RNA sequence: GCAUCCGAGGAGCGUUGCAGCAUCCCCAUGCGGGUGUGAGGCUCGGAACCUACGCAACGACGCUCACCCACU
Numbered sequence: 001g002c003a004u005c006c007g008a009g010g011a012g013c014g015u016u017g018c019a020g021c022a023u024c025c026c027c028a029u030g031c032g033g034g035u036g037u038g039a040g041g042c043u044c045g046g047a048a049c050c051u052a053c054g055c056a057a058c059g060a061c062g063c064u065c066a067c068c069c070a071c072u
Base pairs, nucleotide, nucleotide: 004047005046006045007044008043021036022035023034024033025032

Rfam assigns this 72-nucleotide sequence from Ramlibacter tataouinensis to the family "SAH (S-adenosyl-L-homocysteine) riboswitch aptamer". NCBI's taxonomy places the organism under Bacteria, Pseudomonadota, Betaproteobacteria, Burkholderiales, Ramlibacter. Rfam 15.1 lists 1,354 matches to the family in 1,132 species. On this family, see Wang et al., Mol Cell 2008: "Riboswitches that sense S-adenosylhomocysteine and activate genes involved in coenzyme recycling".